[Rfam]
The family of this 86-nucleotide RNA sequence from Thermovenabulum gondwanense is "Group II catalytic intron D1-D4-1". The literature on the family includes a 2001 paper in Trends Genet by Bonen and Vogel, "The ins and outs of group II introns". NCBI's taxonomy places the organism under Bacteria, Bacillati, Clostridia, Thermosediminibacterales, Thermovenabulum. About the family: Group II introns are found in rRNA, tRNA and mRNA of organelles in fungi, plants and protists, and also in mRNA in bacteria.

Nucleotides: 086
Base pairs, nucleotide, nucleotide: 001025002024005022006021007020008019009018010017011016038045039044047086048085049084056079057078058077059076060075061074062073063072
Number, partner (000 for none) and nucleotide at each position: 001025c002024a003000a004000c005022c006021c007020a008019u009018a010017c011016a012000g013000c014000g015000a016011u017010g018009u019008a020007u021006g022005g023000c024002u025001g026000a027000a028000c029000u030000a031000u032000c033000a034000g035000a036000a037000g038045u039044c040000a041000g042000c043000a044039g045038a046000g047086g048085c049084c050000a051000u052000a053000g054000u055000a056079u057078a058077u059076a060075g061074g062073u063072g064000g065000u066000c067000a068000u069000g070000a071000a072063c073062a074061c075060c076059u077058a078057u079056a080000g081000a082000a083000g084049g085048g086047c
It scores 78 bits against the family's covariance model.